[Rfam]
RNA sequence: CAUUUCGGUCACUCACUCAACUUGGGUGUGUUACGUAAGUGAUUCGCCACAACCUCCUUGAGUGAGCGUCCGAGACA
Numbered sequence: 001c002a003u004u005u006c007g008g009u010c011a012c013u014c015a016c017u018c019a020a021c022u023u024g025g026g027u028g029u030g031u032u033a034c035g036u037a038a039g040u041g042a043u044u045c046g047c048c049a050c051a052a053c054c055u056c057c058u059u060g061a062g063u064g065a066g067c068g069u070c071c072g073a074g075a076c077a
Base pairs, nucleotide, nucleotide: 008069009068012066013065014064015063016062017061018060019059020058024054025053027051028050029049030048034046035045
This 77-nucleotide RNA sequence from Pediculus humanus belongs to the Rfam family "mir-67 microRNA precursor family". For this family Rfam cites "MicroRNAs of Bombyx mori identified by Solexa sequencing" (Liu et al., BMC Genomics, 2010). The match comes from Rfam's covariance-model search (54 bits). The base pairs follow the family's consensus structure, which was predicted with RNAalifold. The source organism's lineage runs through Eukaryota, Metazoa, Protostomia, Insecta and Pediculus humanus.